[Rfam]
This 79-nucleotide RNA from Oncorhynchus tshawytscha belongs to the Rfam family "mir-199 microRNA precursor family". Rfam 15.1 lists 1,828 matches to the family in 648 species. The match comes from Rfam's covariance-model search (60 bits).
RNA sequence: CCGGCUCUCUCCCAGUGUUCAGACUCCUGUUCUUGUCAUACUGGUUGUACAGUAGUCUGCACCUUGGUUAGACUGGGCA
Numbered sequence: 001c002c003g004g005c006u007c008u009c010u011c012c013c014a015g016u017g018u019u020c021a022g023a024c025u026c027c028u029g030u031u032c033u034u035g036u037c038a039u040a041c042u043g044g045u046u047g048u049a050c051a052g053u054a055g056u057c058u059g060c061a062c063c064u065u066g067g068u069u070a071g072a073c074u075g076g077g078c079a
Stems, first nucleotide, its partner, number of pairs: 012067004017062002020059006027052004032047001
From the family's description: This family consists of the microRNA (miRNA) precursor mir-199 which appears to be specific to humans. Animal miRNAs are transcribed as ~70nt precursors and subsequently processed by the Dicer enzyme to give a ~22nt product. In this case the mature sequence comes from the 3' arm of the precursor. The extents of the hairpin precursors are not generally known and are estimated based on hairpin prediction. The literature on the family includes a 2002 paper in Genes Dev by Mourelatos et al., "miRNPs: a novel class of ribonucleoproteins containing numerous microRNAs".